[Rfam]
RNA sequence: UUUACUUUAUGAAGACAUCCCCUGAAACCAGCCUCGUUGUGAGGGGGGUGUCUGAUGCAAUGUAAC
Numbered sequence: 001u002u003u004a005c006u007u008u009a010u011g012a013a014g015a016c017a018u019c020c021c022c023u024g025a026a027a028c029c030a031g032c033c034u035c036g037u038u039g040u041g042a043g044g045g046g047g048g049u050g051u052c053u054g055a056u057g058c059a060a061u062g063u064a065a066c
Base pairs, nucleotide, nucleotide: 002065003064004063005062014052015051016050017049018048019047020046021045022044023043029039030038031037
RNA: Selenocysteine insertion sequence 1
Organism: Pleuronectes platessa